[Rfam]
RNA sequence: AUGAUAUUAUACUACUUAGAUAGUCCUAUCUAGCCAUUUUUAGCUCCCGGUUUUUUAGGACUAUCCAGUUCUCAUGAAAAAAA
Numbered sequence: 001a002u003g004a005u006a007u008u009a010u011a012c013u014a015c016u017u018a019g020a021u022a023g024u025c026c027u028a029u030c031u032a033g034c035c036a037u038u039u040u041u042a043g044c045u046c047c048c049g050g051u052u053u054u055u056u057a058g059g060a061c062u063a064u065c066c067a068g069u070u071c072u073c074a075u076g077a078a079a080a081a082a083a
Base pairs, nucleotide, nucleotide: 019065020064021063022062023061024060025059026058027057032052033051034050035049
Annotation:
Shown here is an 83-nucleotide RNA, a member of the family "rhtB sRNA". The base pairs follow the family's consensus structure, which is taken from published work. For this family Rfam cites "Identification of candidate structured RNAs in the marine organism 'Candidatus Pelagibacter ubique'" (Meyer et al., BMC Genomics, 2009).